[Rfam]
RNA sequence: CGAUGAGGUAGAGGAGCAGAUCCUCAUUAGUACGUGUUGGGAGAAUGACACCAAUGAUCAGCAUCGAAAGGGAGAUCUGCCGAAGCAAGAAUAAUUGUCACGUUAUUUUUGUUGGGGCGGCAUUGAAUAAAUGUCGAACUGUCAUUAUAAGUCUAACUUGUAAUGGUGAACUACUGAUCGG
Numbered sequence: 001c002g003a004u005g006a007g008g009u010a011g012a013g014g015a016g017c018a019g020a021u022c023c024u025c026a027u028u029a030g031u032a033c034g035u036g037u038u039g040g041g042a043g044a045a046u047g048a049c050a051c052c053a054a055u056g057a058u059c060a061g062c063a064u065c066g067a068a069a070g071g072g073a074g075a076u077c078u079g080c081c082g083a084a085g086c087a088a089g090a091a092u093a094a095u096u097g098u099c100a101c102g103u104u105a106u107u108u109u110u111g112u113u114g115g116g117g118c119g120g121c122a123u124u125g126a127a128u129a130a131a132u133g134u135c136g137a138a139c140u141g142u143c144a145u146u147a148u149a150a151g152u153c154u155a156a157c158u159u160g161u162a163a164u165g166g167u168g169a170a171c172u173a174c175u176g177a178u179c180g181g
Base pairs, nucleotide, nucleotide: 007175008174009173010172011171016080017079018078019077020076021075023074024073025072034064035063036062037061038060039059040058084113085112086111087110088109089108090107091106092105093104094103095102114140115139118136119135120134121133122132123131124130142166143165144164145163146162147161148160

Rfam assigns this 181-nucleotide sequence from Guptibacillus hwajinpoensis to the family "Lysine riboswitch aptamer". The organism belongs to Guptibacillus, within Bacteria. Rfam's curators write: Riboswitches are metabolite binding domains within certain messenger RNAs that serve as precision sensors for their corresponding targets. A search with the family's covariance model found it, with a score of 116 bits.